RNA sequence: UCUGAGGAACAUGUUUUGUUUUUUGUUAUAUUUAACAGAAUAGGAAAUGUUUUAUUUAUUGGAAAUAAUGUUUGUGGUUGUAAUUGGGCAGCGGCCAGACAACAGUAGGGAUGGUAUCCACAGAUGGUGGGUUUUUUCACUCUCACUCGUCUACUGAUUCCAUCCCAUAUAU
Numbered sequence: 001u002c003u004g005a006g007g008a009a010c011a012u013g014u015u016u017u018g019u020u021u022u023u024u025g026u027u028a029u030a031u032u033u034a035a036c037a038g039a040a041u042a043g044g045a046a047a048u049g050u051u052u053u054a055u056u057u058a059u060u061g062g063a064a065a066u067a068a069u070g071u072u073u074g075u076g077g078u079u080g081u082a083a084u085u086g087g088g089c090a091g092c093g094g095c096c097a098g099a100c101a102a103c104a105g106u107a108g109g110g111a112u113g114g115u116a117u118c119c120a121c122a123g124a125u126g127g128u129g130g131g132u133u134u135u136u137u138c139a140c141u142c143u144c145a146c147u148c149g150u151c152u153a154c155u156g157a158u159u160c161c162a163u164c165c166c167a168u169a170u171a172u
Stems, first nucleotide, its partner, number of pairs: 003058004008051003012047001014045009024035001108166007116159001127148001129146001131144001